This 136-nucleotide RNA from Bagarius yarrelli belongs to the Rfam family "U11 spliceosomal RNA". Its family is annotated with U11 snRNP, pre-mRNA 5'-splice site binding and mRNA 5'-splice site recognition in the Gene Ontology.

RNA sequence: AAAAAGGGCAUCUGUCGUGAUUGACACAGUGGGAGUAGAAACACUCUGCUGCCACUGCGGAAUCGCUAUCAAGAGAUUUCGGAUGCAUAAUUUUUAAUACCCGGGGCUGCUGAUAACCGCCUGUUUCGGCGCCCCA
Numbered sequence: 001a002a003a004a005a006g007g008g009c010a011u012c013u014g015u016c017g018u019g020a021u022u023g024a025c026a027c028a029g030u031g032g033g034a035g036u037a038g039a040a041a042c043a044c045u046c047u048g049c050u051g052c053c054a055c056u057g058c059g060g061a062a063u064c065g066c067u068a069u070c071a072a073g074a075g076a077u078u079u080c081g082g083a084u085g086c087a088u089a090a091u092u093u094u095u096a097a098u099a100c101c102c103g104g105g106g107c108u109g110c111u112g113a114u115a116a117c118c119g120c121c122u123g124u125u126u127c128g129g130c131g132c133c134c135c136a
Base pairs, nucleotide, nucleotide: 008086009085010084011083012082013026014025015024016023017022027057028056029055030054031053032052034050035049036048037047038046058081059080060079061078062077063076064075104134105133106132107131109130110129111128112127113126115125116124117123